[Rfam]
RNA sequence: ACAGUCUGAAAAUCACUUGGGGUCUUCUGUGUCCCUGGUGCGAUAACUGUGCCGACAGCAGAGGGAGCAUUAAACUCAUUGCCCACGAUAAAGUGUGGGGAGUGAUAUCCAUGUUCCUACAAUC
Numbered sequence: 001a002c003a004g005u006c007u008g009a010a011a012a013u014c015a016c017u018u019g020g021g022g023u024c025u026u027c028u029g030u031g032u033c034c035c036u037g038g039u040g041c042g043a044u045a046a047c048u049g050u051g052c053c054g055a056c057a058g059c060a061g062a063g064g065g066a067g068c069a070u071u072a073a074a075c076u077c078a079u080u081g082c083c084c085a086c087g088a089u090a091a092a093g094u095g096u097g098g099g100g101a102g103u104g105a106u107a108u109c110c111a112u113g114u115u116c117c118u119a120c121a122a123u124c
Stems, first nucleotide, its partner, number of pairs: 006049001008047001010044001014040003021034002024031001064117001066115005076105005084097003
Dot-bracket structure: .....(.(.(...(((....((.(......).))...)))...)..).)..............(.(((((.....(((((...(((........)))...))))).....))))).).......
RNA: Small nucleolar RNA ACA64
Organism: Bucco capensis